[Rfam]
RNA: Actinobacteria sRNA Ms_IGR-5
RNA sequence: ACACGGGAAAGGAGGUGGUCCGAAGAAUGAUUUCUUCAAGGACGCGUGAGGUGGCUGCCCGCUAGCAGCCGCUGAGGACGACUACCGCAGCAUCCGCUGCUGGCGAAUCCCCAGCAGUCACCCGACCCGCAGGCGCCCGGACACCGUCCGCCGGGCACGGCUCCGACAUCGUUCGGCGUCACGCCUGCGGGUCGCCCGUC
Numbered sequence: 001a002c003a004c005g006g007g008a009a010a011g012g013a014g015g016u017g018g019u020c021c022g023a024a025g026a027a028u029g030a031u032u033u034c035u036u037c038a039a040g041g042a043c044g045c046g047u048g049a050g051g052u053g054g055c056u057g058c059c060c061g062c063u064a065g066c067a068g069c070c071g072c073u074g075a076g077g078a079c080g081a082c083u084a085c086c087g088c089a090g091c092a093u094c095c096g097c098u099g100c101u102g103g104c105g106a107a108u109c110c111c112c113a114g115c116a117g118u119c120a121c122c123c124g125a126c127c128c129g130c131a132g133g134c135g136c137c138c139g140g141a142c143a144c145c146g147u148c149c150g151c152c153g154g155g156c157a158c159g160g161c162u163c164c165g166a167c168a169u170c171g172u173u174c175g176g177c178g179u180c181a182c183g184c185c186u187g188c189g190g191g192u193c194g195c196c197c198g199u200c
Stems, first nucleotide, its partner, number of pairs: 014059006060105007068097002071094001073092002123194013137155002140152001